[Rfam]
RNA sequence: ACUUAUUCUCAGGGCGGGGUGAAACUCCCCACCGGCGGUAAUUGUCCAGAUGUCAGACAAAAGCCCGCGAGCGCCUGUUGUUCAGUACAACAGGGUCAGCAGAUCUGGUGCGAAUCCAGAGCCGACGGUUAUAGUCCGGAUAGGAGAGAAUGAAG
Numbered sequence: 001a002c003u004u005a006u007u008c009u010c011a012g013g014g015c016g017g018g019g020u021g022a023a024a025c026u027c028c029c030c031a032c033c034g035g036c037g038g039u040a041a042u043u044g045u046c047c048a049g050a051u052g053u054c055a056g057a058c059a060a061a062a063g064c065c066c067g068c069g070a071g072c073g074c075c076u077g078u079u080g081u082u083c084a085g086u087a088c089a090a091c092a093g094g095g096u097c098a099g100c101a102g103a104u105c106u107g108g109u110g111c112g113a114a115u116c117c118a119g120a121g122c123c124g125a126c127g128g129u130u131a132u133a134g135u136c137c138g139g140a141u142a143g144g145a146g147a148g149a150a151u152g153a154a155g
Stems, first nucleotide, its partner, number of pairs: 003153008017029003031135002033124002035068004063122002071100002104120005126138003

This 155-nucleotide RNA from Endozoicomonas numazuensis belongs to the Rfam family "FMN riboswitch aptamer (RFN element)". NCBI's taxonomy places the organism under Bacteria, Pseudomonadota, Oceanospirillales, Endozoicomonadaceae, Endozoicomonas. The family's consensus secondary structure is taken from published work. It scores 117 bits against the family's covariance model.